[Rfam]
RNA sequence: GGGCCAGCGGUGGAUGCCUCGGGCGCAGGAGGCGAGGAAGGGCGUGGCAAGCUGCGAAAAGCCACGGGGAGCCGCAAGCAGGCGUUGAUCCGUGGAUGCCCGAAUGGGGGAACCCGGCCAGGGUAAUACCUGGUCAUCCGCUAGGUUAAGAGCCUGGCGGAGGCGAACCCGGGGAAGUGAAACAUCUCAGUACCCGGAGGAGAAGAAAUCAAACGAGAUUCCCUGAGUAGCGGCGAGCGAAAGGGGAGGAGCCCAAACCGGAUGAGUGUAGAAGCCCCUAGGCGUUGCUCAUCCGGGGUAGAGGGGGCACACUGGAGGAGGCUAGGGACUCCUCGGGGAGUAAGAAAACCGCUUGGCUAGCCGAAGGCACCUGGAAUGGUCCGCCGUAGAGGGUGAGAGCCCCGUAGGCGAAAGCUGAGUGGACUCCCUGGGUGUGCUACCCAAGUAGCACGGGGCACGAGGAAUCCCGUGUGAAUCAGGGGGGACCACCCUCCAAGGCUAAAUACUCCCUGCGCACCGAUAGAGCAUAAGUACCGUGAGGGAAAGGUGAAAAGAACCCCGGGAGGGGAGUGAAAUAGAGCCUGAAACCGCUGGCCUACA
Numbered sequence: 001g002g003g004c005c006a007g008c009g010g011u012g013g014a015u016g017c018c019u020c021g022g023g024c025g026c027a028g029g030a031g032g033c034g035a036g037g038a039a040g041g042g043c044g045u046g047g048c049a050a051g052c053u054g055c056g057a058a059a060a061g062c063c064a065c066g067g068g069g070a071g072c073c074g075c076a077a078g079c080a081g082g083c084g085u086u087g088a089u090c091c092g093u094g095g096a097u098g099c100c101c102g103a104a105u106g107g108g109g110g111a112a113c114c115c116g117g118c119c120a121g122g123g124u125a126a127u128a129c130c131u132g133g134u135c136a137u138c139c140g141c142u143a144g145g146u147u148a149a150g151a152g153c154c155u156g157g158c159g160g161a162g163g164c165g166a167a168c169c170c171g172g173g174g175a176a177g178u179g180a181a182a183c184a185u186c187u188c189a190g191u192a193c194c195c196g197g198a199g200g201a202g203a204a205g206a207a208a209u210c211a212a213a214c215g216a217g218a219u220u221c222c223c224u225g226a227g228u229a230g231c232g233g234c235g236a237g238c239g240a241a242a243g244g245g246g247a248g249g250a251g252c253c254c255a256a257a258c259c260g261g262a263u264g265a266g267u268g269u270a271g272a273a274g275c276c277c278c279u280a281g282g283c284g285u286u287g288c289u290c291a292u293c294c295g296g297g298g299u300a301g302a303g304g305g306g307g308c309a310c311a312c313u314g315g316a317g318g319a320g321g322c323u324a325g326g327g328a329c330u331c332c333u334c335g336g337g338g339a340g341u342a343a344g345a346a347a348a349c350c351g352c353u354u355g356g357c358u359a360g361c362c363g364a365a366g367g368c369a370c371c372u373g374g375a376a377u378g379g380u381c382c383g384c385c386g387u388a389g390a391g392g393g394u395g396a397g398a399g400c401c402c403c404g405u406a407g408g409c410g411a412a413a414g415c416u417g418a419g420u421g422g423a424c425u426c427c428c429u430g431g432g433u434g435u436g437c438u439a440c441c442c443a444a445g446u447a448g449c450a451c452g453g454g455g456c457a458c459g460a461g462g463a464a465u466c467c468c469g470u471g472u473g474a475a476u477c478a479g480g481g482g483g484g485a486c487c488a489c490c491c492u493c494c495a496a497g498g499c500u501a502a503a504u505a506c507u508c509c510c511u512g513c514g515c516a517c518c519g520a521u522a523g524a525g526c527a528u529a530a531g532u533a534c535c536g537u538g539a540g541g542g543a544a545a546g547g548u549g550a551a552a553a554g555a556a557c558c559c560c561g562g563g564a565g566g567g568g569a570g571u572g573a574a575a576u577a578g579a580g581c582c583u584g585a586a587a588c589c590g591c592u593g594g595c596c597u598a599c600a
Stems, first nucleotide, its partner, number of pairs: 001597010016582001017547002021518002023515007030507002032164002040101003043056003062095007071083003106115003116135007137161009168199001169197005179186002209216002219503001220247005230238002250500004258296011303442003308436005346425001349422010360409003366382002369380003385389001391403003448472008479494005534541002557568004

This 600-nucleotide part of an RNA from Thermodesulfatator indicus belongs to the Rfam family "Bacterial large subunit ribosomal RNA". Gene Ontology terms of the family: ribosome and structural constituent of ribosome.